[Rfam]
Nucleotides: 506
Base pairs, nucleotide, nucleotide: 006390007389008388009387011385012384014382015381019327021325022324025322026321027320031316032315037310038309039308040307041306042305046303049301050300051299052298058229060227061226062225063224064223068108075103077102078101079100082097083096084095086093117222119220122217123216127212129210130209135206137204138203139202140201141199142198143197148191149190153188155186156185157184159182160177161176166171235295236294237293240290241289244286245285249283250282251281254278256277257276258275260271262269329342330341331340332339353377354376355375356374357373360372361371362370363369391431392430393429394428395427396426397425399423400422401421403418405416407415437476438475440473443470444469446467447465448464449463451461452460477505478504482500486497487496488495
Number, partner (000 for none) and nucleotide at each position: 001000g002000u003000g004000g005000c006390g007389g008388u009387g010000u011385a012384g013000u014382c015381c016000c017000a018000c019327g020000u021325g022324g023000c024000g025322u026321c027320g028000u029000c030000g031316u032315c033000c034000a035000g036000a037310a038309g039308g040307g041306c042305g043000u044000u045000c046303u047000c048000a049301c050300c051299g052298a053000a054000c055000c056000g057000g058229u059000c060227g061226c062225c063224g064223u065000c066000g067000g068108c069000a070000a071000g072000c073000a074000c075103g076000g077102c078101g079100a080000c081000g082097g083096u084095g085000a086093c087000c088000u089000u090000g091000u092000c093086g094000c095084c096083g097082u098000a099000c100079u101078u102077g103075c104000c105000g106000a107000c108068g109000g110000a111000u112000g113000c114000c115000u116000g117222g118000u119220u120000g121000a122217u123216c124000c125000g126000g127212c128000c129210g130209u131000g132000g133000g134000c135206g136000a137204u138203c139202a140201g141199g142198u143197g144000g145000a146000u147000c148191u149190g150000c151000u152000c153188g154000g155186c156185g157184g158000g159182g160177g161176c162000a163000c164000c165000g166171c167000g168000c169000u170000c171166g172000a173000c174000c175000a176161g177160c178000a179000c180000c181000u182159c183000a184157c185156c186155g187000g188153c189000u190149c191148g192000g193000a194000a195000g196000u197143c198142a199141c200000g201140c202139u203138g204137g205000a206135c207000g208000c209130a210129c211000c212127g213000g214000c215000c216123g217122g218000c219000g220119a221000u222117c223064g224063c225062g226061g227060u228000c229058a230000g231000c232000a233000c234000a235295u236294c237293c238000u239000c240290g241289u242000c243000u244286u245285c246000g247000a248000a249283c250282c251281c252000c253000c254278g255000c256277a257276g258275c259000a260271g261000g262269g263000c264000c265000a266000g267000u268000u269262c270000g271260c272000c273000g274000a275258g276257u277256u278254c279000c280000c281251g282250g283249g284000g285245g286244a287000u288000c289241a290240c291000c292000c293237g294236g295235a296000c297000g298052u299051c300050g301049g302000c303046a304000c305042c306041g307040u308039c309038c310037u311000g312000g313000a314000u315032g316031a317000a318000c319000u320027c321026g322025a323000u324022c325021u326000g327019c328000c329342c330341a331340u332339c333000g334000c335000c336000g337000a338000c339332g340331g341330u342329g343000u344000a345000a346000u347000u348000c349000a350000g351000c352000c353377g354376g355375c356374g357373g358000u359000u360372c361371a362370c363369c364000c365000g366000g367000u368000a369363g370362g371361u372360g373357c374356c375355g376354c377353c378000c379000u380000u381015g382014g383000u384012c385011u386000c387009c388008a389007c390006c391431c392430a393429g394428g395427g396426g397425a398000g399423c400422a401421u402000c403418c404000g405416c406000a407415g408000c409000a410000g411000c412000c413000a414000g415407c416405g417000a418403g419000a420000g421401g422400u423399g424000a425397u426396c427395u428394c429393c430392u431391g432000c433000a434000u435000c436000u437476g438475c439000g440473g441000g442000g443470c444469g445000g446467a447465c448464u449463u450000g451461g452460u453000c454000g455000u456000c457000g458000u459000g460452g461451c462000a463449a464448g465447g466000u467446u468000g469444c470443g471000g472000g473440c474000a475438g476437c477505c478504g479000c480000g481000g482500u483000g484000c485000u486497c487496a488495g489000g490000c491000u492000g493000g494000a495488c496487u497486g498000c499000c500482g501000c502000u503000u504478c505477g506000g